[Rfam]
RNA sequence: UAAUCUGGUGGCGUAGUCAAAUAUCAGCUGGUAAUUCUGGGAUUAUAAUGAUAGCCCAGGAUUCUUGCUGGUAUCCGGCUACGGGCUGGU
Numbered sequence: 001u002a003a004u005c006u007g008g009u010g011g012c013g014u015a016g017u018c019a020a021a022u023a024u025c026a027g028c029u030g031g032u033a034a035u036u037c038u039g040g041g042a043u044u045a046u047a048a049u050g051a052u053a054g055c056c057c058a059g060g061a062u063u064c065u066u067g068c069u070g071g072u073a074u075c076c077g078g079c080u081a082c083g084g085g086c087u088g089g090u
Stems, first nucleotide, its partner, number of pairs: 013082006021074008030065002034062008
Dot-bracket structure: ............((((((..((((((((.((..((((((((.............)))))))).)).))))))))..))))))........

Shown here is a 90-nucleotide sequence from Cephus cinctus, a member of the family "mir-283 microRNA precursor family". NCBI's taxonomy places the organism under Eukaryota, Ecdysozoa, Mandibulata, Neoptera, Cephus. Pairs were carried over by alignment from the consensus structure, which was predicted with WAR. It scores 73 bits against the family's covariance model.